[Rfam]
RNA sequence: ACAAUCCUUUUCUUGGGGUUGCACUACUUUCCAGUGAAUGCAUAGUGACAGAAGUACUACUGCCUACACAACACACCUGCAUCAACUAGAGCUUUGCUUUACCUUGGUGCAAUUUUUGGAAAA
Numbered sequence: 001a002c003a004a005u006c007c008u009u010u011u012c013u014u015g016g017g018g019u020u021g022c023a024c025u026a027c028u029u030u031c032c033a034g035u036g037a038a039u040g041c042a043u044a045g046u047g048a049c050a051g052a053a054g055u056a057c058u059a060c061u062g063c064c065u066a067c068a069c070a071a072c073a074c075a076c077c078u079g080c081a082u083c084a085a086c087u088a089g090a091g092c093u094u095u096g097c098u099u100u101a102c103c104u105u106g107g108u109g110c111a112a113u114u115u116u117u118g119g120a121a122a123a
Stems, first nucleotide, its partner, number of pairs: 006018004021060001023058001026055005038046002079110006087101006
U4atac minor spliceosomal RNA: a 123-nucleotide sequence from Callithrix jacchus. Clan: U4 clan. The organism belongs to Callithrix, within Eukaryota. On this family, see Davila Lopez et al., Nucleic Acids Res 2008: "Computational screen for spliceosomal RNA genes aids in defining the phylogenetic distribution of major and minor spliceosomal components". Gene Ontology terms of the family: spliceosomal tri-snRNP complex assembly, U4atac snRNP and pre-mRNA 5'-splice site binding. The family has 61 seed sequences and 1,648 matches in Rfam 15.1. The family's RNA type in Rfam is spliceosomal small nuclear RNA.